[Rfam]
RNA sequence: GGAAUAUAAGAACCUGACUCUUAACUUUUAACUAAAAAAGCUAAGAACUGGCUCUAAAUAAGAGUUUUAAGAGACGGUUCUUAGCUUUUUUAGUUAAAAGUUAAGGGACAUAAUCUUAUAUUCC
Numbered sequence: 001g002g003a004a005u006a007u008a009a010g011a012a013c014c015u016g017a018c019u020c021u022u023a024a025c026u027u028u029u030a031a032c033u034a035a036a037a038a039a040g041c042u043a044a045g046a047a048c049u050g051g052c053u054c055u056a057a058a059u060a061a062g063a064g065u066u067u068u069a070a071g072a073g074a075c076g077g078u079u080c081u082u083a084g085c086u087u088u089u090u091u092a093g094u095u096a097a098a099a100g101u102u103a104a105g106g107g108a109c110a111u112a113a114u115c116u117u118a119u120a121u122u123c124c
Base pairs, nucleotide, nucleotide: 001124002123003122004121005120006119007118008117009116010115011114015110016109018107019106020105021104022103023102024101025100026099027098028097029096030095031094032093033092034091035090036089037088038087039086041084042083043082044081045080046079047078

The family of this 124-nucleotide RNA sequence from Brassica cretica is "MIR9563 microRNA precursor family". Its family is annotated with miRNA-mediated post-transcriptional gene silencing and RISC complex in the Gene Ontology. The match comes from Rfam's covariance-model search (108 bits).